[Rfam]
RNA: Purine riboswitch aptamer
RNA sequence: UAAACAAAGAUGAAAUGACCUCAUAUAAAGUUGGGAAUAUGGCCCAACAGUUUCUACCCAAUGCCCGAAAAGCGAUGGACUAUGAGGAGAAUACGAUGCACG
Numbered sequence: 001u002a003a004a005c006a007a008a009g010a011u012g013a014a015a016u017g018a019c020c021u022c023a024u025a026u027a028a029a030g031u032u033g034g035g036a037a038u039a040u041g042g043c044c045c046a047a048c049a050g051u052u053u054c055u056a057c058c059c060a061a062u063g064c065c066c067g068a069a070a071a072g073c074g075a076u077g078g079a080c081u082a083u084g085a086g087g088a089g090a091a092u093a094c095g096a097u098g099c100a101c102g
Stems, first nucleotide, its partner, number of pairs: 019087007030048006058078003062074003